[Rfam]
RNA sequence: GAAGGUUAUCGCAAUAGUAAUUGAACUUAGUACGAGAGGAACAGUUCAUUCAGAUAAUUGGUUUUUGCGGCUGUCUGAUCAGGCAUUGCCGCGAAGCUACCAUCUGUUGGAUUAUGGCUGAACGCCUCUAAGUCAGAAUCCAUGCUAGAAAGCGAUGAUUUUUUGCCUUACACAUCAUAGAUGGAUACGAAUAAGGUGUUCUUGUAGCACCGCUGAACCAUAGCAGGCUGGCAACGGCGUUCUUUCCGGAAAGGGAUUGGGCGUUUGCUGGUGAAUUGCAAUGUCAUUUUGCGUGAGGAUAAAUCAUUUGUAAACGACUUAAAUGUAUGACGGGGUAUUGUAAGCAGUAGAGUAGCCUUGUUGUUACGAUCUGCUGAGAUUAAGCCUUUGUUGUCUGAUUUGU
Number, nucleotide and partner (000 for none) at each position: 001g000002a000003a000004g000005g159006u158007u157008a156009u155010c154011g153012c152013a000014a000015u147016a146017g145018u144019a000020a050021u000022u048023g047024a046025a045026c044027u043028u000029a000030g000031u000032a000033c000034g000035a000036g000037a000038g000039g000040a000041a000042c000043a027044g026045u025046u024047c023048a022049u000050u020051c106052a105053g104054a103055u102056a000057a000058u000059u099060g098061g097062u000063u000064u000065u000066u093067g092068c091069g090070g089071c000072u085073g084074u083075c082076u081077g000078a000079u000080c000081a076082g075083g074084c073085a072086u000087u000088g000089c070090c069091g068092c067093g066094a000095a000096g000097c061098u060099a059100c000101c000102a055103u054104c053105u052106g051107u000108u142109g141110g140111a000112u000113u000114a000115u135116g134117g133118c132119u131120g000121a000122a000123c000124g000125c000126c000127u000128c000129u000130a000131a119132g118133u117134c116135a115136g000137a000138a000139u000140c110141c109142a108143u000144g018145c017146u016147a015148g000149a000150a000151a000152g012153c011154g010155a009156u008157g007158a006159u005160u000161u000162u000163u000164u000165g000166c000167c297168u296169u295170a294171c293172a000173c291174a000175u000176c000177a000178u000179a000180g000181a000182u000183g000184g000185a000186u000187a000188c000189g000190a000191a000192u000193a000194a000195g000196g000197u000198g000199u000200u000201c000202u000203u000204g000205u000206a000207g000208c000209a000210c000211c000212g000213c000214u000215g000216a000217a000218c000219c000220a000221u000222a000223g000224c000225a000226g000227g000228c000229u000230g000231g000232c000233a000234a000235c000236g000237g000238c000239g000240u000241u000242c000243u000244u000245u000246c000247c000248g000249g000250a000251a000252a000253g000254g000255g000256a000257u000258u000259g000260g000261g000262c000263g000264u000265u000266u000267g000268c000269u000270g000271g000272u000273g000274a000275a000276u000277u000278g000279c000280a000281a000282u000283g000284u000285c000286a000287u000288u000289u000290u000291g173292c000293g171294u170295g169296a168297g167298g000299a000300u000301a401302a400303a399304u398305c397306a000307u321308u000309u000310g318311u000312a000313a000314a000315c000316g000317a000318c310319u000320u000321a307322a000323a000324u000325g000326u000327a394328u393329g392330a391331c390332g389333g387334g386335g385336u000337a380338u379339u000340g000341u000342a000343a000344g374345c373346a372347g371348u000349a370350g000351a000352g367353u366354a365355g364356c363357c000358u000359u000360g000361u000362u000363g356364u355365u354366a353367c352368g000369a000370u349371c347372u346373g345374c344375u000376g000377a000378g000379a338380u337381u000382a000383a000384g000385c335386c334387u333388u000389u332390g331391u330392u329393g328394u327395c000396u000397g305398a304399u303400u302401u301402g000403u000
RNA: Eukaryotic large subunit ribosomal RNA, nucleotides 2978 to 3380